[Rfam]
RNA: tRNA
Organism: Rubripirellula obstinata
RNA sequence: GCCUCCGUAGCUCAACUGGAUAGAGCAUCGGUCUUCGGAACCGAGGGUUAGGGGUUCGAAUCCCUUCGGGGGUA
Numbered sequence: 001g002c003c004u005c006c007g008u009a010g011c012u013c014a015a016c017u018g019g020a021u022a023g024a025g026c027a028u029c030g031g032u033c034u035u036c037g038g039a040a041c042c043g044a045g046g047g048u049u050a051g052g053g054g055u056u057c058g059a060a061u062c063c064c065u066u067c068g069g070g071g072g073u074a
Stems, first nucleotide, its partner, number of pairs: 001073007010026004028044005050066005